[Rfam]
RNA sequence: GCAGCCGUCAUCGGGGAGUAGCCGCUCUUCCACCGGAAGAGGCUUGCGUCAACACACUUGGCCCCAUCGGCCAUGGCGCAGGCAGUCCCGCACCUGGCAAGACCGUUGACCACAGCGCCGCCGCAGGCCGGGGUAGCGCUGUGGUCAUCGAUGUCGUUCCGGCCGGGGAU
Numbered sequence: 001g002c003a004g005c006c007g008u009c010a011u012c013g014g015g016g017a018g019u020a021g022c023c024g025c026u027c028u029u030c031c032a033c034c035g036g037a038a039g040a041g042g043c044u045u046g047c048g049u050c051a052a053c054a055c056a057c058u059u060g061g062c063c064c065c066a067u068c069g070g071c072c073a074u075g076g077c078g079c080a081g082g083c084a085g086u087c088c089c090g091c092a093c094c095u096g097g098c099a100a101g102a103c104c105g106u107u108g109a110c111c112a113c114a115g116c117g118c119c120g121c122c123g124c125a126g127g128c129c130g131g132g133g134u135a136g137c138g139c140u141g142u143g144g145u146c147a148u149c150g151a152u153g154u155c156g157u158u159c160c161g162g163c164c165g166g167g168g169a170u
Stems, first nucleotide, its partner, number of pairs: 026040003042083010059073005086168005
Shown here is a 170-nucleotide RNA from Candidatus Macondimonas diazotrophica, a member of the family "Manganese Mn2+ riboswitch aptamer (yybP-ykoY)". Lineage of the source: Bacteria > Pseudomonadati > Pseudomonadota > Gammaproteobacteria > Candidatus Macondimonas. From the family's description: This RNA was originally discovered in E. coli during a large scale screen and was named SraF. The family was later found to exist upstream of related families of protein genes in many bacteria, including the the yybP and ykoK genes in B. subtilis. The specific functions of these proteins are unknown, but this structured RNA element may be involved in their genetic regulation as a riboswitch. The pairing is the family consensus, mapped onto this sequence.